The record is a 61-nucleotide sequence from Chrysochloris asiatica, which matches "Selenocysteine insertion sequence 1" in Rfam. By type it is a cis-regulatory element.

[Rfam]
RNA sequence: GUUUCAUUAAUGAUGGUGUUUCUCUAAACCUGAGUGGAGAAGCACCUGACGUCUUGGAAAU
Numbered sequence: 001g002u003u004u005c006a007u008u009a010a011u012g013a014u015g016g017u018g019u020u021u022c023u024c025u026a027a028a029c030c031u032g033a034g035u036g037g038a039g040a041a042g043c044a045c046c047u048g049a050c051g052u053c054u055u056g057g058a059a060a061u
Stems, first nucleotide, its partner, number of pairs: 001061005015046010029036001